Bacterial RNase P class A: a 400-nucleotide sequence from Lacimicrobium alkaliphilum. Ribonuclease P (RNase P) is a ubiquitous endoribonuclease, found in archaea, bacteria and eukarya as well as chloroplasts and mitochondria.
RNA sequence: GGAGCUGGCCAGACAAUCGCCGCCCGACCACCUAAUUGCACGGUAUAAGCCAUGAAUAUUGGCUUUCAUGCAAUUAGGUGGUCGGGGGGAGGAAAGUCCGGGCUCCAUAGGGCAGGGUGCCAGGUAACGCCUGGGCGGCGCAAGCCGACGACAAGUGCAGCAGAGAGCAGACCGCCAACCCCGGCUCGCCGGGCGGUAAGGGUGAAAGGGUGCGGUAAGAGCGCACCGCGCAACUGGUAACAGUUUGUGGCAUGGUAAACUCCACCCGGAGCAAGACCAAAUAGGGUUCCUUGGCGCGGCCCGCGUCGGAACCGGGUAGGUUGCUUGAGUCAGUGAGCGAUUACUGACCUAGAUGAAUGAUUGUCUUAGACAGAACCCGGCUUAUCGGCCAGCUCCCCUU
Numbered sequence: 001g002g003a004g005c006u007g008g009c010c011a012g013a014c015a016a017u018c019g020c021c022g023c024c025c026g027a028c029c030a031c032c033u034a035a036u037u038g039c040a041c042g043g044u045a046u047a048a049g050c051c052a053u054g055a056a057u058a059u060u061g062g063c064u065u066u067c068a069u070g071c072a073a074u075u076a077g078g079u080g081g082u083c084g085g086g087g088g089g090a091g092g093a094a095a096g097u098c099c100g101g102g103c104u105c106c107a108u109a110g111g112g113c114a115g116g117g118u119g120c121c122a123g124g125u126a127a128c129g130c131c132u133g134g135g136c137g138g139c140g141c142a143a144g145c146c147g148a149c150g151a152c153a154a155g156u157g158c159a160g161c162a163g164a165g166a167g168c169a170g171a172c173c174g175c176c177a178a179c180c181c182c183g184g185c186u187c188g189c190c191g192g193g194c195g196g197u198a199a200g201g202g203u204g205a206a207a208g209g210g211u212g213c214g215g216u217a218a219g220a221g222c223g224c225a226c227c228g229c230g231c232a233a234c235u236g237g238u239a240a241c242a243g244u245u246u247g248u249g250g251c252a253u254g255g256u257a258a259a260c261u262c263c264a265c266c267c268g269g270a271g272c273a274a275g276a277c278c279a280a281a282u283a284g285g286g287u288u289c290c291u292u293g294g295c296g297c298g299g300c301c302c303g304c305g306u307c308g309g310a311a312c313c314g315g316g317u318a319g320g321u322u323g324c325u326u327g328a329g330u331c332a333g334u335g336a337g338c339g340a341u342u343a344c345u346g347a348c349c350u351a352g353a354u355g356a357a358u359g360a361u362u363g364u365c366u367u368a369g370a371c372a373g374a375a376c377c378c379g380g381c382u383u384a385u386c387g388g389c390c391a392g393c394u395c396c397c398c399u400u
Base pairs, nucleotide, nucleotide: 001396002395003394004393005392006391007390008389009388010387011385012365013364014363015362016361017360018359020089021088023086024085025084026083027082028081029080030079031078032077033076034075035074036073037072038071039070040069094383095382096381098380099379100378101377102376103271104270105269106268110302111301112300113299115267116266117265118264119263120134121133122132123131124130135149136147137146138145139144150262151261155260156259157256158255172201173200174197175196176195180193181192182191183190184189209227210226211225212224213223214222228251229249230248231247232246233245234243235242236241275322276321277320278319285313286312287311288310289309290308293307294306295305296304297303329348330347331346332345333344334343335342336341
It is annotated as a ribozyme. A search with the family's covariance model found it, with a score of 339 bits.